[Rfam]
RNA sequence: CAAGUCUCUUGCCUUUUGGCUUAGAUCAAGUGUAGUAUCUGUUCUUCAUAGUUUAAUCGCUGUGACCGGUCUACGGACCGUCAAUAAUGAUUAUUCUUAUUUUUGGAACUCGCUUUCAGACCUCUGAGCUUGCUCACGUCUGUUGGCACAGUGUCGCUCGUAUUGCACUACCUCGAGCUGACGCGAAUAUUU
Numbered sequence: 001c002a003a004g005u006c007u008c009u010u011g012c013c014u015u016u017u018g019g020c021u022u023a024g025a026u027c028a029a030g031u032g033u034a035g036u037a038u039c040u041g042u043u044c045u046u047c048a049u050a051g052u053u054u055a056a057u058c059g060c061u062g063u064g065a066c067c068g069g070u071c072u073a074c075g076g077a078c079c080g081u082c083a084a085u086a087a088u089g090a091u092u093a094u095u096c097u098u099a100u101u102u103u104u105g106g107a108a109c110u111c112g113c114u115u116u117c118a119g120a121c122c123u124c125u126g127a128g129c130u131u132g133c134u135c136a137c138g139u140c141u142g143u144u145g146g147c148a149c150a151g152u153g154u155c156g157c158u159c160g161u162a163u164u165g166c167a168c169u170a171c172c173u174c175g176a177g178c179u180g181a182c183g184c185g186a187a188u189a190u191u192u
Stems, first nucleotide, its partner, number of pairs: 007025003011020003046065006067080005112147003117142003125136004151184005156178005
U2 spliceosomal RNA: a 192-nucleotide sequence from Aureobasidium namibiae. The family's RNA type in Rfam is spliceosomal small nuclear RNA. Rfam links the family to the GO terms mRNA branch site recognition, U2 snRNP and pre-mRNA branch point binding. A search with the family's covariance model found it, with a score of 135 bits.